[Rfam]
Nucleotides: 077
Base pairs, nucleotide, nucleotide: 008025009024010023011022012021013020014019029046030045031044032043033042034041050067051066052065053064054063055062056061
Number, partner (000 for none) and nucleotide at each position: 001000g002000a003000g004000c005000g006000a007000a008025a009024u010023u011022c012021c013020c014019u015000a016000a017000g018000a019014a020013g021012g022011g023010a024009g025008u026000g027000a028000a029046a030045u031044u032043c033042c034041c035000u036000u037000g038000g039000a040000a041034g042033g043032g044031a045030g046029u047000g048000a049000a050067a051066u052065u053064c054063c055062c056061u057000u058000g059000g060000a061056a062055g063054g064053g065052a066051g067050u068000g069000a070000a071000a072000u073000u074000c075000c076000c077000u